[Rfam]
RNA sequence: UAAAAAGGAUCGAGGUCGGCUAAGAUCGCUGGCGUCCUGCCAGCAAAGCUGACACUAGCACGUCCUGUGCG
Number, nucleotide and partner (000 for none) at each position: 001u000002a000003a000004a000005a000006a000007g000008g000009a000010u000011c000012g000013a000014g000015g053016u052017c051018g050019g049020c048021u000022a000023a000024g000025a000026u000027c000028g000029c043030u042031g041032g040033c039034g000035u000036c000037c000038u000039g033040c032041c031042a030043g029044c000045a000046a000047a000048g020049c019050u018051g017052a016053c015054a000055c000056u000057a000058g070059c069060a068061c067062g000063u000064c000065c000066u000067g061068u060069g059070c058071g000
The record is a 71-nucleotide RNA sequence from Pseudogracilibacillus auburnensis, which matches "Bacillaceae-1 RNA" in Rfam. The family's consensus secondary structure is taken from published work. The family's RNA type in Rfam is small RNA.